Overview
This 128-nucleotide sequence from Comamonas suwonensis belongs to the Rfam family "Glycine riboswitch aptamer". The match comes from Rfam's covariance-model search (58 bits).
RNA sequence: GCGUUCCUUGCUGGAGAGAGAUGCCGCACUACGCAAUUCAGCUAGGCGAUGGCAUCCACCGAAGGAGCAAACCGCCCGACAUCACUGCGGCGGCGAAUCUCUCAGGUAAAGCGGACAGCAGGGCAAGC
Numbered sequence: 001g002c003g004u005u006c007c008u009u010g011c012u013g014g015a016g017a018g019a020g021a022u023g024c025c026g027c028a029c030u031a032c033g034c035a036a037u038u039c040a041g042c043u044a045g046g047c048g049a050u051g052g053c054a055u056c057c058a059c060c061g062a063a064g065g066a067g068c069a070a071a072c073c074g075c076c077c078g079a080c081a082u083c084a085c086u087g088c089g090g091c092g093g094c095g096a097a098u099c100u101c102u103c104a105g106g107u108a109a110a111g112c113g114g115a116c117a118g119c120a121g122g123g124c125a126a127g128c
Base pairs, nucleotide, nucleotide: 006123007122008121009120010119011118012117013116020056021055022054023053024052025051026050058107059106060105061103062102065101066100067099072093073092074091075090076089